[Rfam]
RNA: Ascomycota telomerase RNA, nucleotides 1156 to 1521
RNA sequence: CUGCAAACGGAAGGAGCUUGAGUUCAUGGAAAGCCGUUUCGGAAAGGAAUGCAGAGAGUGAUCGGGUGCCGACGACGGUAUCAUGAUGAUCCUGGCACACGCUAGGCUUUUCCAAACAAACAGCGGGGAUUCAUGGACCCUUUGUCUUGCUCGGUUUGGGAGCAAAGUCCGGGACCCAGCCUGCGUUGGAGUCAAAGUUUUGUACUUGUCCGGCUUUAUGAACAAUUCCCUCGGGACUUUGGUGGACGGCUUCCUUGCUGGCGUGCGGAUGAAGAUUGGAGAAAGGGACAGGCCCCGAGGUUGAUGGCAGUCCCUGGCUGUUCCUUGCUCCAGUAAUGGCGUGAGGACAGCCCUCUUCAUCGGAGG
Numbered sequence: 001c002u003g004c005a006a007a008c009g010g011a012a013g014g015a016g017c018u019u020g021a022g023u024u025c026a027u028g029g030a031a032a033g034c035c036g037u038u039u040c041g042g043a044a045a046g047g048a049a050u051g052c053a054g055a056g057a058g059u060g061a062u063c064g065g066g067u068g069c070c071g072a073c074g075a076c077g078g079u080a081u082c083a084u085g086a087u088g089a090u091c092c093u094g095g096c097a098c099a100c101g102c103u104a105g106g107c108u109u110u111u112c113c114a115a116a117c118a119a120a121c122a123g124c125g126g127g128g129a130u131u132c133a134u135g136g137a138c139c140c141u142u143u144g145u146c147u148u149g150c151u152c153g154g155u156u157u158g159g160g161a162g163c164a165a166a167g168u169c170c171g172g173g174a175c176c177c178a179g180c181c182u183g184c185g186u187u188g189g190a191g192u193c194a195a196a197g198u199u200u201u202g203u204a205c206u207u208g209u210c211c212g213g214c215u216u217u218a219u220g221a222a223c224a225a226u227u228c229c230c231u232c233g234g235g236a237c238u239u240u241g242g243u244g245g246a247c248g249g250c251u252u253c254c255u256u257g258c259u260g261g262c263g264u265g266c267g268g269a270u271g272a273a274g275a276u277u278g279g280a281g282a283a284a285g286g287g288a289c290a291g292g293c294c295c296c297g298a299g300g301u302u303g304a305u306g307g308c309a310g311u312c313c314c315u316g317g318c319u320g321u322u323c324c325u326u327g328c329u330c331c332a333g334u335a336a337u338g339g340c341g342u343g344a345g346g347a348c349a350g351c352c353c354u355c356u357u358c359a360u361c362g363g364a365g366g
Base pairs, nucleotide, nucleotide: 173193174192175191176189177188178187195207196206197205198204